The record is a 203-nucleotide RNA, which matches "Connexin-43 internal ribosome entry site (IRES)" in Rfam.
Pairs were carried over by alignment from the consensus structure, which is taken from published work.
A reference for the family is Schiavi et al. (1999), "Connexin43 mRNA contains a functional internal ribosome entry site", FEBS Lett.
Rfam links the family to the GO term ribosome binding.
It is one of the family's seed sequences.
[Rfam]
RNA sequence: GCUUUUACGAGGUAUCAGCACUUUUCUUUCAUUGGGGGAAAGGCGUGAGGGAAGUACCCAACAGCAGCAGACUUUGAAACUUUAAACAGACAGGUCUGAGAGCCCGAACUCUCCUUUUCCUUUGACUUCAGCCUCCAAGGAGUUCCACCACUUUGGCGUGCCGGCUUCACUUUCAUUAAGUGAAAGAACAGGGUCUCUCUGUA
Numbered sequence: 001g002c003u004u005u006u007a008c009g010a011g012g013u014a015u016c017a018g019c020a021c022u023u024u025u026c027u028u029u030c031a032u033u034g035g036g037g038g039a040a041a042g043g044c045g046u047g048a049g050g051g052a053a054g055u056a057c058c059c060a061a062c063a064g065c066a067g068c069a070g071a072c073u074u075u076g077a078a079a080c081u082u083u084a085a086a087c088a089g090a091c092a093g094g095u096c097u098g099a100g101a102g103c104c105c106g107a108a109c110u111c112u113c114c115u116u117u118u119c120c121u122u123u124g125a126c127u128u129c130a131g132c133c134u135c136c137a138a139g140g141a142g143u144u145c146c147a148c149c150a151c152u153u154u155g156g157c158g159u160g161c162c163g164g165c166u167u168c169a170c171u172u173u174c175a176u177u178a179a180g181u182g183a184a185a186g187a188a189c190a191g192g193g194u195c196u197c198u199c200u201g202u203a
Stems, first nucleotide, its partner, number of pairs: 001019003006014003028142003032138007040128003047122004052118003069097006098113005155196002158194002161191001165186003168182005